[Rfam]
This 37-nucleotide sequence from Chitinophaga silvatica belongs to the Rfam family "DUF805b RNA".
RNA sequence: AAUGGAGAAGCCGAAAACCAUUAUAAAAGAGUAGGCC
Numbered sequence: 001a002a003u004g005g006a007g008a009a010g011c012c013g014a015a016a017a018c019c020a021u022u023a024u025a026a027a028a029g030a031g032u033a034g035g036c037c
Base pairs, nucleotide, nucleotide: 002021003020004019005018010036011035012034

The family's RNA type in Rfam is cis-regulatory element.